[Rfam]
RNA sequence: CUCUUAUCAAGAGCGGCAGAGGGACUAGGCCCUGCGAAGCCCGGCAACCUUCAAACAUCGGUUUGAAAAGGUGCCAAUUCCUACAGAUCAUGGAUCUGAGAGAUAAGAG
Dot-bracket structure: ((((((((....(.(((...(((..[[[[)))......))))((((.((((((..........))))..))))))...(]]]]((((((...))))))..)))))))))